Description: Rfam assigns this 68-nucleotide RNA from Mycobacterium simulans to the family "ASdes TB sRNA". The family has 26 seed sequences and 1,192 matches in Rfam 15.1. Pairs were carried over by alignment from the consensus structure, which is taken from published work.
RNA sequence: UUCGCCGUCGGGUCGACCUCCCUGGUGACCACCAGGUAUUCGCGUAGCGCGAUGGCGUGCAGGUGCUC
Numbered sequence: 001u002u003c004g005c006c007g008u009c010g011g012g013u014c015g016a017c018c019u020c021c022c023u024g025g026u027g028a029c030c031a032c033c034a035g036g037u038a039u040u041c042g043c044g045u046a047g048c049g050c051g052a053u054g055g056c057g058u059g060c061a062g063g064u065g066c067u068c
Stems, first nucleotide, its partner, number of pairs: 005062001008059001011030003016026003035056001037054002040052005
It is annotated as a small RNA.